[Rfam]
RNA: U4atac minor spliceosomal RNA
Organism: Holothuria leucospilota
RNA sequence: AUCGUCCUUAUCAUUGGGGAGCAUGAUCAUUCAAGGAUCGUUUAGUGAGACUGAUCUUGCUGACACCAAUAAAUAACACACAUAAGCAUCACUGACUAGCUAUGGCAGGUCAGGCUAGGUGCAAUUUUUGAUUCC
Numbered sequence: 001a002u003c004g005u006c007c008u009u010a011u012c013a014u015u016g017g018g019g020a021g022c023a024u025g026a027u028c029a030u031u032c033a034a035g036g037a038u039c040g041u042u043u044a045g046u047g048a049g050a051c052u053g054a055u056c057u058u059g060c061u062g063a064c065a066c067c068a069a070u071a072a073a074u075a076a077c078a079c080a081c082a083u084a085a086g087c088a089u090c091a092c093u094g095a096c097u098a099g100c101u102a103u104g105g106c107a108g109g110u111c112a113g114g115c116u117a118g119g120u121g122c123a124a125u126u127u128u129u130g131a132u133u134c135c
Stems, first nucleotide, its partner, number of pairs: 005020005021060003026055004031050002039045001086122005092113006